Description
The family of this 120-nucleotide RNA from Arabidopsis lyrata is "MIR390 microRNA precursor family". Its family is annotated with RISC complex and miRNA-mediated post-transcriptional gene silencing in the Gene Ontology.
Nucleotides: 120
Base pairs, nucleotide, nucleotide: 010111016105017104018103019102020101021100022099023098024097026095027094028093029092030091031090032089033088034087035086
Number, partner (000 for none) and nucleotide at each position: 001000g002000a003000a004000a005000a006000a007000u008000a009000g010111c011000u012000a013000u014000a015000a016105a017104g018103c019102u020101c021100a022099g023098g024097a025000g026095g027094g028093a029092u030091a031090g032089c033088g034087c035086c036000a037000u038000g039000a040000a041000u042000c043000a044000c045000c046000a047000a048000u049000a050000c051000u052000g053000u054000a055000g056000g057000u058000u059000u060000u061000g062000u063000a064000u065000a066000u067000a068000c069000a070000u071000g072000c073000a074000u075000g076000u077000a078000g079000a080000u081000c082000u083000g084000u085000u086035g087034g088033c089032g090031c091030u092029a093028u094027c095026c096000a097024u098023c099022c100021u101020g102019a103018g104017u105016u106000c107000c108000a109000u110000a111010g112000c113000u114000u115000c116000u117000u118000c119000u120000u

Lineage of the source: Eukaryota > Euphyllophyta > Spermatophyta > Pentapetalae > Arabidopsis lyrata.